[Rfam]
RNA: RT-15 RNA
Organism: Pseudomonas fluorescens
RNA sequence: CCGCGCCCGCUGCUUGAGGGUCAAGACCCUCUUGCCUGUGCGCCAAAUCUGGUCGAGCCGCUGACCUCUGGGUCACCGCCAUGCGCACAACAGAAACCGCCGGUCUAAAGCGUCCGCGCAGGUCUCGCGCAGUUUCCAAGCUGAUCGGCUCUGCCUUCGGAUUGGCGAUGUAGAUAGCUCGACAGGUCG
Numbered sequence: 001c002c003g004c005g006c007c008c009g010c011u012g013c014u015u016g017a018g019g020g021u022c023a024a025g026a027c028c029c030u031c032u033u034g035c036c037u038g039u040g041c042g043c044c045a046a047a048u049c050u051g052g053u054c055g056a057g058c059c060g061c062u063g064a065c066c067u068c069u070g071g072g073u074c075a076c077c078g079c080c081a082u083g084c085g086c087a088c089a090a091c092a093g094a095a096a097c098c099g100c101c102g103g104u105c106u107a108a109a110g111c112g113u114c115c116g117c118g119c120a121g122g123u124c125u126c127g128c129g130c131a132g133u134u135u136c137c138a139a140g141c142u143g144a145u146c147g148g149c150u151c152u153g154c155c156u157u158c159g160g161a162u163u164g165g166c167g168a169u170g171u172a173g174a175u176a177g178c179u180c181g182a183c184a185g186g187u188c189g
Stems, first nucleotide, its partner, number of pairs: 004042003012035002016031006053182006059078002062075005082131005092125003097122002101116003133168002136165004141160004147155003